Overview:
This 110-nucleotide RNA sequence from Propithecus coquereli belongs to the Rfam family "U5 spliceosomal RNA". Rfam describes the family as follows. U5 RNA is a component of both types of known spliceosome. The precise function of this molecule is unknown, though it is known that the 5' loop is required for splice site selection and p220 binding, and that both the 3' stem-loop and the Sm site are important for Sm protein binding and cap methylation.
RNA sequence: ACACUCGGGUUUCUCUUCAGAUCAUAUAAAUCUUUCACCUUUUACUAAAGAUUUCCAUGGAGGGGAACAAUUCUUACACCAAUUUUUUGAGGCCUUCUUCUGGCGAGGCU
Numbered sequence: 001a002c003a004c005u006c007g008g009g010u011u012u013c014u015c016u017u018c019a020g021a022u023c024a025u026a027u028a029a030a031u032c033u034u035u036c037a038c039c040u041u042u043u044a045c046u047a048a049a050g051a052u053u054u055c056c057a058u059g060g061a062g063g064g065g066a067a068c069a070a071u072u073c074u075u076a077c078a079c080c081a082a083u084u085u086u087u088u089g090a091g092g093c094c095u096u097c098u099u100c101u102g103g104c105g106a107g108g109c110u
Stems, first nucleotide, its partner, number of pairs: 003072001005070001009068011028054008090110001092109005